This 73-nucleotide RNA sequence from Drosophila sechellia belongs to the Rfam family "mir-6 microRNA precursor family". The family is grouped with related families in Rfam's "mir-6 clan". Rfam describes the family as follows. This family consists of the microRNA (miRNA) precursor mir-6 which appears to be Drosophila specific. Animal miRNAs are transcribed as ~70nt precursors and subsequently processed by the Dicer enzyme to give a ~22nt product. In this case the mature sequence comes from the 3' arm of the precursor. On this family, see Ambros, Cell 2001: "microRNAs: tiny regulators with great potential". The family has 36 seed sequences and 58 matches in Rfam 15.1.

RNA sequence: AAGUAGAGGGAAUAGUUGCUGUGCUGUAAGUUAAUAUACCAUAUCUAUAUCACAGUGGCUGUUCUUUUUGUAC
Dot-bracket structure: ...((.(((((((..((((((((.((((.................)))).))))))))..))))))).))...